[Rfam]
RNA sequence: AGAGGUGGGCCCUCCGGUCAGGGUUUACAGGAGCACAGACCAAACGACCCGGUGCUGCUUCAUUCUAAGGAAUGAGGUGGUGAGCGACUCCGGGAAAAGGCAGAGAUCUACUGUCACG
Numbered sequence: 001a002g003a004g005g006u007g008g009g010c011c012c013u014c015c016g017g018u019c020a021g022g023g024u025u026u027a028c029a030g031g032a033g034c035a036c037a038g039a040c041c042a043a044a045c046g047a048c049c050c051g052g053u054g055c056u057g058c059u060u061c062a063u064u065c066u067a068a069g070g071a072a073u074g075a076g077g078u079g080g081u082g083a084g085c086g087a088c089u090c091c092g093g094g095a096a097a098a099g100g101c102a103g104a105g106a107u108c109u110a111c112u113g114u115c116a117c118g
Stems, first nucleotide, its partner, number of pairs: 002014004016041004021036001023034004045118002048094005053087001054081002057078003061074002063071002099115005

Rfam assigns this 118-nucleotide sequence from Shigella flexneri to the family "Group II catalytic intron D1-D4-2". Pairs were carried over by alignment from the consensus structure. The organism belongs to Shigella flexneri 2a, within Bacteria. Group II introns are found in rRNA, tRNA and mRNA of organelles in fungi, plants and protists, and also in mRNA in bacteria. The family has 144 seed sequences and 1,231 matches in Rfam 15.1.